[Rfam]
RNA: Histidine operon leader
Organism: Vibrio ziniensis
RNA sequence: UCAUCAUCACCAUCAUCCCUAAGAGUCUUUCGGGAGAUGUACGCAUACCCGGGAGACAGGAAACUCCCGGUGGUUAAAUCAAAGUAUUUUUAAGAUUUUAGACCCUUGGGAGACCAAUCUCCCAAGGGUUUUUUACU
Number, nucleotide and partner (000 for none) at each position: 001u000002c000003a000004u000005c000006a000007u000008c000009a046010c000011c039012a038013u037014c036015a000016u000017c034018c033019c032020u000021a030022a000023g000024a000025g000026u000027c000028u000029u000030u021031c000032g019033g018034g017035a000036g014037a013038u012039g011040u000041a000042c000043g000044c000045a000046u009047a000048c070049c069050c000051g068052g067053g066054a065055g064056a000057c000058a000059g000060g000061a000062a000063a000064c055065u054066c053067c052068c051069g049070g048071u000072g000073g000074u000075u000076a000077a000078a000079u000080c000081a000082a000083a000084g000085u000086a000087u000088u000089u000090u000091u000092a000093a000094g000095a000096u000097u000098u000099u000100a131101g130102a129103c128104c127105c126106u125107u124108g123109g122110g121111a120112g119113a000114c000115c000116a000117a000118u000119c112120u111121c110122c109123c108124a107125a106126g105127g104128g103129u102130u101131u100132u000133u000134u000135a000136c000137u000